[Rfam]
RNA sequence: CAGUCCGAGGAGCGUUGCGACGGGGGCUCCAACCCUGCCAGGCUCGGGCUGUGUUUCAAGACAUAACGGCGCUCAGUCAUU
Numbered sequence: 001c002a003g004u005c006c007g008a009g010g011a012g013c014g015u016u017g018c019g020a021c022g023g024g025g026g027c028u029c030c031a032a033c034c035c036u037g038c039c040a041g042g043c044u045c046g047g048g049c050u051g052u053g054u055u056u057c058a059a060g061a062c063a064u065a066a067c068g069g070c071g072c073u074c075a076g077u078c079a080u081u
Stems, first nucleotide, its partner, number of pairs: 002050007021037005

Shown here is an 81-nucleotide RNA from Candidatus Thiothrix singaporensis, a member of the family "SAH (S-adenosyl-L-homocysteine) riboswitch aptamer".
Lineage of the source: Bacteria > Gammaproteobacteria > Thiotrichales > Thiotrichaceae > Thiothrix.
Pairs were carried over by alignment from the consensus structure, which is taken from published work.